[Rfam]
RNA sequence: CUGUGUUAGAGAGGGGAAUGCUUUUGUAGCUUUUUCUCUCUAAAAUCAACGCUAAUAUUAAGCAGAGGAAAUAUUAAUGAGUCGAGAUAUCGUUUCGGACGCUUUUUUUUCGUUUUUUUCUCCAUGGGCGAUUCGAUUGUUGCUCGACCACAU
Numbered sequence: 001c002u003g004u005g006u007u008a009g010a011g012a013g014g015g016g017a018a019u020g021c022u023u024u025u026g027u028a029g030c031u032u033u034u035u036c037u038c039u040c041u042a043a044a045a046u047c048a049a050c051g052c053u054a055a056u057a058u059u060a061a062g063c064a065g066a067g068g069a070a071a072u073a074u075u076a077a078u079g080a081g082u083c084g085a086g087a088u089a090u091c092g093u094u095u096c097g098g099a100c101g102c103u104u105u106u107u108u109u110u111c112g113u114u115u116u117u118u119u120c121u122c123c124a125u126g127g128g129c130g131a132u133u134c135g136a137u138u139g140u141u142g143c144u145c146g147a148c149c150a151c152a153u
Stems, first nucleotide, its partner, number of pairs: 002048002006044002009040010081148001083146004089137004098132001100130005106124001
Description
A member of the RNA family "Small nucleolar RNA snoR111" from Ananas comosus, 153 nucleotides long. It is annotated as an H/ACA-box small nucleolar RNA. The literature on the family includes a 2002 paper in Curr Biol by Marker et al., "Experimental RNomics: identification of 140 candidates for small non-messenger RNAs in the plant Arabidopsis thaliana". It scores 52 bits against the family's covariance model.